A member of the RNA family "Histone 3' UTR stem-loop" from Catagonus wagneri, 47 nucleotides long. Rfam 15.1 lists 44,596 matches to the family in 976 species. The base pairs follow the family's consensus structure, which is taken from published work. The match comes from Rfam's covariance-model search (42 bits). Taxonomically the source falls in Catagonus (Eukaryota, Eumetazoa, Eutheria, Boreoeutheria). From the family's description: The mRNAs of metazoan histone genes lack a poly-A tail. 3' end processing occurs at a site between a highly conserved stem-loop (modelled by this family) and a purine rich region around 20 nts downstream (the histone downstream element, or HDE).
[Rfam]
RNA sequence: CCAAAGGCUCUUUUCAGAGCCACUUAUCUUUUCAUUUAAAGAGUUGU
Numbered sequence: 001c002c003a004a005a006g007g008c009u010c011u012u013u014u015c016a017g018a019g020c021c022a023c024u025u026a027u028c029u030u031u032u033c034a035u036u037u038a039a040a041g042a043g044u045u046g047u
Stems, first nucleotide, its partner, number of pairs: 006021006